MIR2912 microRNA precursor family: a 157-nucleotide RNA sequence from Populus tomentosa. Its family is annotated with miRNA-mediated post-transcriptional gene silencing and RISC complex in the Gene Ontology. The match comes from Rfam's covariance-model search (104 bits). The family has 2 seed sequences and 15,051 matches in Rfam 15.1. The organism belongs to Populus, within Eukaryota.

[Rfam]
RNA sequence: UCUAGAACUCGAGAUAUGGGCUAAACACUAAACAGUGUCUGGGUUGUAGGACAAAUUUAGACUUCUCCGUUAUUGCUAUAAUUUGGACUUGAAAAUGGCCUUUUUAAAUCAUGGACUCCACAUGCAAGUUGUAGGCCUAUGUCUUACCGAAUCUGUC
Number, nucleotide and partner (000 for none) at each position: 001u000002c000003u155004a154005g153006a152007a000008c000009u146010c000011g145012a144013g143014a142015u141016a140017u139018g138019g137020g136021c134022u133023a132024a000025a130026c000027a129028c128029u127030a000031a000032a000033c000034a000035g123036u122037g121038u000039c000040u000041g119042g118043g117044u000045u115046g000047u000048a112049g000050g110051a109052c000053a000054a105055a104056u000057u000058u000059a000060g099061a000062c098063u097064u000065c000066u000067c000068c000069g000070u000071u000072a000073u087074u086075g000076c000077u000078a000079u000080a000081a000082u000083u000084u000085g000086g074087a073088c000089u000090u000091g000092a000093a000094a000095a000096u000097g063098g062099c060100c000101u000102u000103u000104u055105u054106a000107a000108a000109u051110c050111a000112u048113g000114g000115a045116c000117u043118c042119c041120a000121c037122a036123u035124g000125c000126a000127a029128g028129u027130u025131g000132u023133a022134g021135g000136c020137c019138u018139a017140u016141g015142u014143c013144u012145u011146a009147c000148c000149g000150a000151a000152u006153c005154u004155g003156u000157c000